[Rfam]
RNA sequence: GGUGGAUUGAAUCCGUUCAUUGGCAGGGGCGGGGGAACCAUCACUGGUUGCCGGAAGGCAAUCUUGGGGUGAAGUCCGCAUGGGGAGUGCAAGUUCCGCAGGGCCUUUCGGGGGAUAGCUCUGUGCCGCGUGUAUUGCCCUGUGGGCCAGGUCUUUGAACUCUCUGACCUGAAUCCGACAGCUAACCUCGCAGGCUUCCAGAGAGGAAAC
Numbered sequence: 001g002g003u004g005g006a007u008u009g010a011a012u013c014c015g016u017u018c019a020u021u022g023g024c025a026g027g028g029g030c031g032g033g034g035g036a037a038c039c040a041u042c043a044c045u046g047g048u049u050g051c052c053g054g055a056a057g058g059c060a061a062u063c064u065u066g067g068g069g070u071g072a073a074g075u076c077c078g079c080a081u082g083g084g085g086a087g088u089g090c091a092a093g094u095u096c097c098g099c100a101g102g103g104c105c106u107u108u109c110g111g112g113g114g115a116u117a118g119c120u121c122u123g124u125g126c127c128g129c130g131u132g133u134a135u136u137g138c139c140c141u142g143u144g145g146g147c148c149a150g151g152u153c154u155u156u157g158a159a160c161u162c163u164c165u166g167a168c169c170u171g172a173a174u175c176c177g178a179c180a181g182c183u184a185a186c187c188u189c190g191c192a193g194g195c196u197u198c199c200a201g202a203g204a205g206g207a208a209a210c
Base pairs, nucleotide, nucleotide: 005196007194008193012028013027014026029191030190031189032188033187034186039066040065067176068175069174075146076145077144078143079142080141149170150169151168152167

This 210-nucleotide sequence from Arthrobacter sp. SW1 belongs to the Rfam family "c-di-AMP riboswitch aptamer (ydaO/yuaA leader)".
Rfam links the family to the GO terms cyclic-di-AMP binding and regulation of gene expression.